[Rfam]
RNA: Fluoride riboswitch aptamer (crcB RNA motif)
Organism: Nostoc sp. ATCC 43529
RNA sequence: UAAUCAUAAGGCGAUGGAGCUCGCCAUAACCGCCUAAUCAAGCUUUCUCUUCUUAAACUUGAUAAUAAAGCUGAUAGCUCCUAUUCUUCU
Numbered sequence: 001u002a003a004u005c006a007u008a009a010g011g012c013g014a015u016g017g018a019g020c021u022c023g024c025c026a027u028a029a030c031c032g033c034c035u036a037a038u039c040a041a042g043c044u045u046u047c048u049c050u051u052c053u054u055a056a057a058c059u060u061g062a063u064a065a066u067a068a069a070g071c072u073g074a075u076a077g078c079u080c081c082u083a084u085u086c087u088u089c090u
Stems, first nucleotide, its partner, number of pairs: 010025004016081006032071002035068001